Notes: Rfam assigns this 129-nucleotide RNA from Cyprinus carpio to the family "Small nucleolar RNA SNORA63".

[Rfam]
RNA sequence: UUGCAGGAUCAGUUAUGGGCCGGCUGUGUCAGUGCUGGUCUGUCGUUCCCCCUGCACAAAUAAACAUGUUUCCUUCUAUCCCUGUGUGUUUGCAUCCCACGACUCACAGGGACGCUUGGUCUCAGACAC
Dot-bracket structure: ..(((((.......((((((((((.........)))))))))).......))))).........................((((.(.((............)).).))))...................
Numbered sequence: 001u002u003g004c005a006g007g008a009u010c011a012g013u014u015a016u017g018g019g020c021c022g023g024c025u026g027u028g029u030c031a032g033u034g035c036u037g038g039u040c041u042g043u044c045g046u047u048c049c050c051c052c053u054g055c056a057c058a059a060a061u062a063a064a065c066a067u068g069u070u071u072c073c074u075u076c077u078a079u080c081c082c083u084g085u086g087u088g089u090u091u092g093c094a095u096c097c098c099a100c101g102a103c104u105c106a107c108a109g110g111g112a113c114g115c116u117u118g119g120u121c122u123c124a125g126a127c128a129c
Stems, first nucleotide, its partner, number of pairs: 003055005015043010081110004086105001088103002
Description
E3 belongs to the H/ACA class of snoRNAs and is involved in the processing of eukaryotic pre-rRNA and has regions of complementarity to 18S rRNA. E3 is encoded in introns in the gene for protein synthesis initiation factor 4AII. A reference for the family is Mishra and Eliceiri (1997), "Three small nucleolar RNAs that are involved in ribosomal RNA precursor processing", Proc Natl Acad Sci U S A. The base pairs follow the family's consensus structure, which was predicted with PFOLD. A search with the family's covariance model found it, with a score of 91 bits.